[Rfam]
RNA sequence: CCUGCCAGAUAGCAGGUCAUCGGAAUGUGGUCUUCGGGACUGAACCGGCCA
Number, nucleotide and partner (000 for none) at each position: 001c016002c015003u014004g013005c012006c000007a000008g000009a000010u000011a000012g005013c004014a003015g002016g001017u000018c000019a000020u000021c047022g046023g045024a000025a000026u000027g000028u000029g041030g040031u039032c038033u037034u000035c000036g000037g033038g032039a031040c030041u029042g000043a000044a000045c023046c022047g021048g000049c000050c000051a000
RNA: eL15-Euryarchaeota ribosomal protein leader